[Rfam]
RNA sequence: UAUUCGAGUAGAGGCGCAUUCAUUAAGAGUAUAUUUCAGGAACUUGAAAAGAAGUUGGGACUGAAGUAAAAAGGGAUGAGUGCCGAAAUGGACAGUUACUUUUCUGACUGUCUGUUGGGACUUAAUUUAACAAAUUAAGGACUGUCGUGGUUUGACCGCCACGGGGAGCUAUCAAGAUG
Numbered sequence: 001u002a003u004u005c006g007a008g009u010a011g012a013g014g015c016g017c018a019u020u021c022a023u024u025a026a027g028a029g030u031a032u033a034u035u036u037c038a039g040g041a042a043c044u045u046g047a048a049a050a051g052a053a054g055u056u057g058g059g060a061c062u063g064a065a066g067u068a069a070a071a072a073g074g075g076a077u078g079a080g081u082g083c084c085g086a087a088a089u090g091g092a093c094a095g096u097u098a099c100u101u102u103u104c105u106g107a108c109u110g111u112c113u114g115u116u117g118g119g120a121c122u123u124a125a126u127u128u129a130a131c132a133a134a135u136u137a138a139g140g141a142c143u144g145u146c147g148u149g150g151u152u153u154g155a156c157c158g159c160c161a162c163g164g165g166g167a168g169c170u171a172u173c174a175a176g177a178u179g
Base pairs, nucleotide, nucleotide: 008172009171010170011169016083017082018081019080020079021078022077023076024075032068033067034066035065036064037063038062039061087116088115089114090113091112092111093110094109095108096107097106098105117143118142121139122138123137124136125135126134127133145164146163147162148161149160150159151158